[Rfam]
Shown here is a 149-nucleotide sequence from Carlito syrichta, a member of the family "U12 minor spliceosomal RNA". A search with the family's covariance model found it, with a score of 94 bits. NCBI's taxonomy places the organism under Eukaryota, Craniata, Euarchontoglires, Primates, Carlito. The family's RNA type in Rfam is spliceosomal small nuclear RNA.

Nucleotides: 149
Stems, first nucleotide, its partner, number of pairs: 007020002033052003038047002054070005084149005091144006099133002102130005108124002112120001
Number, partner (000 for none) and nucleotide at each position: 001000a002000u003000g004000c005000c006000u007020u008019a009000a010000a011000c012000u013000u014000a015000u016000g017000a018000g019008u020007a021000u022000a023000a024000a025000a026000a027000a028000u029000a030000a031000c032000a033052a034051u035050u036000c037000a038047g039046g040000a041000u042000g043000a044000u045000g046039c047038c048000c049000a050035a051034g052033u053000c054070c055069u056068u057067g058066c059000c060000a061000c062000u063000a064000a065000u066058g067057u068056g069055a070054g071000a072000u073000g074000a075000a076000u077000u078000u079000u080000u081000g082000a083000g084149u085148g086147g087146g088145u089000a090000a091144a092143g093142g094141u095140u096139g097000c098000c099133c100132u101000a102130a103129g104128g105127u106126g107000a108124c109123c110000c111000a112120c113000c114000u115000a116000c117000u118000u119000u120112g121000c122000a123109g124108g125000a126106u127105g128104c129103c130102u131000g132100g133099g134000a135000g136000u137000c138000a139096c140095a141094a142093u143092c144091u145088g146087c147086c148085u149084g